[Rfam]
Nucleotides: 286
Base pairs, nucleotide, nucleotide: 017145018144019143020142021141022140023139024138025075026074028072029071031069032068033067034066035063036062037061038060039059040057042053043052044051083137084136085134086133089124090123092121093120157206167197168196169195170194172192173191174190175189176188177187178185179184212279213278214277215274216273217272218271219270228263229262230261233257234256235255239249240248241247242246
Number, partner (000 for none) and nucleotide at each position: 001000u002000u003000u004000c005000u006000u007000u008000c009000a010000a011000u012000a013000u014000a015000u016000g017145a018144g019143g020142u021141c022140u023139g024138u025075g026074c027000a028072a029071g030000u031069g032068a033067u034066c035063c036062u037061g038060a039059g040057g041000c042053c043052c044051u045000u046000u047000u048000g049000u050000u051044a052043g053042g054000c055000g056000u057040c058000a059039c060038u061037c062036g063035g064000u065000a066034g067033a068032u069031c070000a071029c072028u073000g074026g075025c076000a077000a078000c079000u080000c081000g082000a083137c084136g085134u086133c087000a088000a089124g090123g091000a092121g093120c094000c095000a096000c097000u098000c099000u100000c101000u102000c103000u104000a105000g106000c107000g108000a109000g110000a111000a112000a113000a114000u115000c116000u117000g118000u119000a120093g121092u122000g123090u124089c125000a126000a127000u128000c129000u130000u131000c132000c133086g134085g135000u136084c137083g138024a139023c140022a141021g142020a143019u144018c145017u146000c147000a148000a149000a150000a151000u152000a153000a154000u155000u156000a157206c158000u159000a160000c161000c162000u163000u164000c165000a166000g167197u168196g169195g170194c171000u172192g173191a174190g175189c176188u177187c178185c179184u180000a181000u182000c183000a184179g185178g186000u187177g188176a189175g190174c191173u192172c193000g194170g195169c196168c197167a198000a199000g200000a201000g202000g203000g204000c205000u206157g207000c208000u209000a210000a211000g212279g213278a214277c215274g216273u217272c218271a219270u220000a221000u222000u223000c224000c225000a226000a227000g228263g229262c230261u231000u232000u233257g234256c235255c236000a237000a238000a239249g240248c241247u242246c243000g244000u245000u246242g247241a248240g249239c250000u251000a252000u253000g254000a255235g256234g257233u258000u259000c260000g261230a262229g263228c264000a265000a266000a267000a268000c269000c270219a271218u272217g273216a274215c275000u276000u277214g278213u279212c280000u281000a282000c283000a284000u285000a286000u